[Rfam]
RNA sequence: GGCACUACAGGUGGCUCUGGGCCGAAAGUACUGACGACAGACCAGAAGCGGGAAGCCGUGACAGUGAUGUGCAAAGCGACAGGUCUGUCGCAACGGCGUGACAGGUU
Numbered sequence: 001g002g003c004a005c006u007a008c009a010g011g012u013g014g015c016u017c018u019g020g021g022c023c024g025a026a027a028g029u030a031c032u033g034a035c036g037a038c039a040g041a042c043c044a045g046a047a048g049c050g051g052g053a054a055g056c057c058g059u060g061a062c063a064g065u066g067a068u069g070u071g072c073a074a075a076g077c078g079a080c081a082g083g084u085c086u087g088u089c090g091c092a093a094c095g096g097c098g099u100g101a102c103a104g105g106u107u
Stems, first nucleotide, its partner, number of pairs: 035090009048059004065078002

Insertion sequence IS1222 ribosomal frameshifting element: a 107-nucleotide sequence from Dickeya dadantii. Gene Ontology term of the family: translational frameshifting. Rfam describes the family as follows. This family represents the insertion sequence IS1222 ribosomal frameshifting element. On this family, see Mejlhede et al., J Bacteriol 2004: "-1 frameshifting at a CGA AAG hexanucleotide site is required for transposition of insertion sequence IS1222".